[Rfam]
About this RNA: Rfam assigns this 63-nucleotide sequence from Microtus ochrogaster to the family "Small nucleolar RNA Z39". The family has 5 seed sequences and 935 matches in Rfam 15.1. The family's consensus secondary structure was predicted with PFOLD. NCBI's taxonomy places the organism under Eukaryota, Vertebrata, Amniota, Mammalia, Microtus.

RNA sequence: UUAAAUGUGAUGAAGCAAGUCAGUAUGGAUAAACUCAAGAUAGUGUGAAUGCUUUCUGAUGUG
Number, nucleotide and partner (000 for none) at each position: 001u000002u063003a062004a000005a060006u000007g000008u000009g000010a000011u000012g055013a054014a053015g052016c051017a000018a000019g000020u000021c045022a044023g000024u042025a041026u040027g000028g000029a000030u000031a000032a000033a000034c000035u000036c000037a000038a000039g000040a026041u025042a024043g000044u022045g021046u000047g000048a000049a000050u000051g016052c015053u014054u013055u012056c000057u000058g000059a000060u005061g000062u003063g002